The family of this 67-nucleotide RNA from Drosophila rhopaloa is "mir-8/mir-141/mir-200 microRNA precursor family". A search with the family's covariance model found it, with a score of 68 bits. On this family, see Lagos-Quintana et al., Science 2001: "Identification of novel genes coding for small expressed RNAs". NCBI's taxonomy places the organism under Eukaryota, Mandibulata, Endopterygota, Eremoneura, Sophophora. The family's consensus secondary structure was predicted with RNAalifold.
[Rfam]
RNA sequence: GUUCACAUCUUACCGGGCAGCAUUAGAUCCGUUUGAUACUCUAAUACUGUCAGGUAAAGAUGUCGUC
Numbered sequence: 001g002u003u004c005a006c007a008u009c010u011u012a013c014c015g016g017g018c019a020g021c022a023u024u025a026g027a028u029c030c031g032u033u034u035g036a037u038a039c040u041c042u043a044a045u046a047c048u049g050u051c052a053g054g055u056a057a058a059g060a061u062g063u064c065g066u067c
Stems, first nucleotide, its partner, number of pairs: 003065001005063005010057005016051005022045006